[Rfam]
RNA sequence: AGUUGCUCAUAUGACUGACGGAAGUGGAAUGAACCACAGGGAAAUAUGAGGAUUUGAUUAUUUAGCCGACCGUCUGGGCGAUUCAG
Dot-bracket structure: ...(.(((((((..(([[[[[..((((......))))..))..))))))).)..........(.(((..]]]]]..))).).....
A member of the RNA family "ZMP/ZTP riboswitch aptamer (pfl RNA motif)" from Allocoprococcus comes, 86 nucleotides long. Pairs were carried over by alignment from the consensus structure, which is taken from published work.